[Rfam]
RNA sequence: UUACUUAAAUGGCAGGGAAGGUACCAUGAUCAGGCAGUGGUUUUCCCAGGGUGAGGCUCAUCCCCUGCACUUUGGGUGUGCUAAUCACUGGGAUUUCCACAAAUGAGGGAAACUCGAUUGCAUAAUUUCUGGUAGUGCAGGAAUGAGUUCACACUCUCUGCCC
Numbered sequence: 001u002u003a004c005u006u007a008a009a010u011g012g013c014a015g016g017g018a019a020g021g022u023a024c025c026a027u028g029a030u031c032a033g034g035c036a037g038u039g040g041u042u043u044u045c046c047c048a049g050g051g052u053g054a055g056g057c058u059c060a061u062c063c064c065c066u067g068c069a070c071u072u073u074g075g076g077u078g079u080g081c082u083a084a085u086c087a088c089u090g091g092g093a094u095u096u097c098c099a100c101a102a103a104u105g106a107g108g109g110a111a112a113c114u115c116g117a118u119u120g121c122a123u124a125a126u127u128u129c130u131g132g133u134a135g136u137g138c139a140g141g142a143a144u145g146a147g148u149u150c151a152c153a154c155u156c157u158c159u160g161c162c163c
Base pairs, nucleotide, nucleotide: 012121013120014119015118016047017046019044020043021042023041024040025039026038027037048089049088051086053085055082056081057080059078060077061076062075063074092115093114094112095110096109098108137161138160139159140158142157145154147152
U1 spliceosomal RNA: a 163-nucleotide RNA from Anas platyrhynchos. About the family: U1 is a small nuclear RNA (snRNA) component of the spliceosome (involved in pre-mRNA splicing). By type it is a spliceosomal small nuclear RNA. The family's consensus secondary structure is taken from published work. Taxonomically the source falls in Anas platyrhynchos (Eukaryota, Euteleostomi, Sarcopterygii, Tetrapoda).